[Rfam]
Nucleotides: 086
Stems, first nucleotide, its partner, number of pairs: 002085005015072008024062001026060009036050001
Number, partner (000 for none) and nucleotide at each position: 001000a002085c003084c004083u005082g006081c007000c008000a009000c010000a011000c012000u013000u014000u015072a016071g017070c018069a019068g020067c021066a022065c023000g024062u025000a026060a027059a028058u029057a030056u031055u032054g033053g034052u035000g036050u037000g038000u039000g040000a041000g042000g043000g044000a045000a046000a047000a048000a049000a050036a051000a052034a053033c054032c055031a056030a057029u058028a059027u060026u061000a062024g063000c064000a065022g066021u067020g068019c069018u070017g071016c072015u073000u074000c075000a076000g077000g078000g079000u080000g081006g082005c083004a084003g085002g086000g
This 86-nucleotide sequence from Xiphophorus maculatus belongs to the Rfam family "mir-15 microRNA precursor family". Taxonomically the source falls in Xiphophorus (Eukaryota, Eumetazoa, Craniata, Teleostei). The match comes from Rfam's covariance-model search (66 bits). This family represents the related mir-15a and mir-15b sequences. In humans miR-15a and miR-16 are clustered within 0.5 kb at 13q14. This region has been shown to be deleted in more than half of B cell chronic lymphocytic leukaemias (CLL). Gene Ontology terms of the family: RISC complex and miRNA-mediated post-transcriptional gene silencing.